[Rfam]
RNA sequence: GUGGGCGUCGUGACGGUCCAGCCGACCGCCGUGCCGGUCGUAUCCGAAUUGCCUGGUCGCACCAGUGCCUUCCUCGUCGCGCAGGUGCGUUCCCGUGUCGACGGCAUCGUGCUGACGCGCGAGUUCACCGAAGGCACCAACGUGAAGGCGGGCCAGCGGCUCUACAAGAUCGA
Numbered sequence: 001g002u003g004g005g006c007g008u009c010g011u012g013a014c015g016g017u018c019c020a021g022c023c024g025a026c027c028g029c030c031g032u033g034c035c036g037g038u039c040g041u042a043u044c045c046g047a048a049u050u051g052c053c054u055g056g057u058c059g060c061a062c063c064a065g066u067g068c069c070u071u072c073c074u075c076g077u078c079g080c081g082c083a084g085g086u087g088c089g090u091u092c093c094c095g096u097g098u099c100g101a102c103g104g105c106a107u108c109g110u111g112c113u114g115a116c117g118c119g120c121g122a123g124u125u126c127a128c129c130g131a132a133g134g135c136a137c138c139a140a141c142g143u144g145a146a147g148g149c150g151g152g153c154c155a156g157c158g159g160c161u162c163u164a165c166a167a168g169a170u171c172g173a
Stems, first nucleotide, its partner, number of pairs: 003054005008047003013041004018037002021034002023031002056149003059143002065137004072133001074131002079092001081090002094121002097118001099117002102114005157172002160168002
A member of the RNA family "Burkholderia RNA 14" from Paraburkholderia dinghuensis, 173 nucleotides long. The base pairs follow the family's consensus structure, which was predicted with RNAfold. Co-purified with Hfq, expression confirmed by Northern blot. Putative functional homologue of PA-SraF. Overlaps coding sequence. The family's RNA type in Rfam is small RNA.